[Rfam]
RNA sequence: GAAGGGCGUACAGUGCACCCACUGUGUUUGCUGGGGUCACUGUGAAUCGUGGCCCGAUGCGGUAGGUCGUUGAUCCGCUACAUCGCGUACAUCUCGCUAGUCUUUACUCCUUGCAAAACAGUACCCAGCGCGCCAGAGCGUGCGUUGGAUCAACCUUUAGUCAACUGUUUCAAGGAGUUAUGCUAUGUCCGAUCGUCAGACCGGUACCGUCAAGUGGUUCAACGAUGCCAAGGGCUUCGGCUUCAUCAGCCGCGCCGACGGCGAGGACGUGUUCGUCCAUUUCCGCGCCAUCCAGGGCAACGGCUUCAAGUCGCUGCAGGAAGGCCAGCAGGUCACCUUCAAGGUGACGCAGGGCCAGAAGGGCCUGCAGGCUGAAGAAGUUCAGGCCCUGUAAGCAGCAUCGGCUAGGCGCUUGCGCCGAACCAGGAAAAGCCCCGGCAUCGUCCGGGGCUUUUUUG
Numbered sequence: 001g002a003a004g005g006g007c008g009u010a011c012a013g014u015g016c017a018c019c020c021a022c023u024g025u026g027u028u029u030g031c032u033g034g035g036g037u038c039a040c041u042g043u044g045a046a047u048c049g050u051g052g053c054c055c056g057a058u059g060c061g062g063u064a065g066g067u068c069g070u071u072g073a074u075c076c077g078c079u080a081c082a083u084c085g086c087g088u089a090c091a092u093c094u095c096g097c098u099a100g101u102c103u104u105u106a107c108u109c110c111u112u113g114c115a116a117a118a119c120a121g122u123a124c125c126c127a128g129c130g131c132g133c134c135a136g137a138g139c140g141u142g143c144g145u146u147g148g149a150u151c152a153a154c155c156u157u158u159a160g161u162c163a164a165c166u167g168u169u170u171c172a173a174g175g176a177g178u179u180a181u182g183c184u185a186u187g188u189c190c191g192a193u194c195g196u197c198a199g200a201c202c203g204g205u206a207c208c209g210u211c212a213a214g215u216g217g218u219u220c221a222a223c224g225a226u227g228c229c230a231a232g233g234g235c236u237u238c239g240g241c242u243u244c245a246u247c248a249g250c251c252g253c254g255c256c257g258a259c260g261g262c263g264a265g266g267a268c269g270u271g272u273u274c275g276u277c278c279a280u281u282u283c284c285g286c287g288c289c290a291u292c293c294a295g296g297g298c299a300a301c302g303g304c305u306u307c308a309a310g311u312c313g314c315u316g317c318a319g320g321a322a323g324g325c326c327a328g329c330a331g332g333u334c335a336c337c338u339u340c341a342a343g344g345u346g347a348c349g350c351a352g353g354g355c356c357a358g359a360a361g362g363g364c365c366u367g368c369a370g371g372c373u374g375a376a377g378a379a380g381u382u383c384a385g386g387c388c389c390u391g392u393a394a395g396c397a398g399c400a401u402c403g404g405c406u407a408g409g410c411g412c413u414u415g416c417g418c419c420g421a422a423c424c425a426g427g428a429a430a431a432g433c434c435c436c437g438g439c440a441u442c443g444u445c446c447g448g449g450g451c452u453u454u455u456u457u458g
Base pairs, nucleotide, nucleotide: 004020005019006018008016009015026253027252030250031249032248033247044244045243047240048239053234054233055232061229062228063227064226068224069223070222071221072220073219076217081187082186083185085183086182087181094175095174099170100169103118104117105116189204190203191202193200256346257345259343266274267273279333280332281331282330287326288324289323291318293316294315295314300311301310351366352365353364355363356362367392368391369390370389371387372386373385404423406421408419409418410417411416428455429454430453431452432451433450434449435448436447437446438445
RNA: cspA thermoregulator
Organism: Alkalisalibacterium limincola